[Rfam]
RNA: mir-156 microRNA precursor family
Organism: Dioscorea zingiberensis
RNA sequence: GUGACAGAAGAGAGUGAGCACACAUGGUGUUUCCUUGCAUGGUAGGGAGUCCAUGCUUGGAACUAUGCGUGCUCACAUCUCUAUCUGUCAC
Numbered sequence: 001g002u003g004a005c006a007g008a009a010g011a012g013a014g015u016g017a018g019c020a021c022a023c024a025u026g027g028u029g030u031u032u033c034c035u036u037g038c039a040u041g042g043u044a045g046g047g048a049g050u051c052c053a054u055g056c057u058u059g060g061a062a063c064u065a066u067g068c069g070u071g072c073u074c075a076c077a078u079c080u081c082u083a084u085c086u087g088u089c090a091c
Stems, first nucleotide, its partner, number of pairs: 001091008010081004014076008023067003